[Rfam]
RNA sequence: GUUCCCUCUAGCUAAUCCUUGCUGCCUGGGUAAGAGUGCUUUCUAAUUGUAAUGUACCUAGGCAAGGAUUCAGAGAGCAAGAGC
Numbered sequence: 001g002u003u004c005c006c007u008c009u010a011g012c013u014a015a016u017c018c019u020u021g022c023u024g025c026c027u028g029g030g031u032a033a034g035a036g037u038g039c040u041u042u043c044u045a046a047u048u049g050u051a052a053u054g055u056a057c058c059u060a061g062g063c064a065a066g067g068a069u070u071c072a073g074a075g076a077g078c079a080a081g082a083g084c
Stems, first nucleotide, its partner, number of pairs: 014070007025062008037051003
mir-500 microRNA precursor family: an 84-nucleotide RNA from Orycteropus afer. On this family, see Zhou et al., Genomics 2009: "In silico detection and characteristics of novel microRNA genes in the Equus caballus genome using an integrated ab initio and comparative genomic approach". The match comes from Rfam's covariance-model search (87 bits). NCBI's taxonomy places the organism under Eukaryota, Gnathostomata, Mammalia, Eutheria, Orycteropus afer.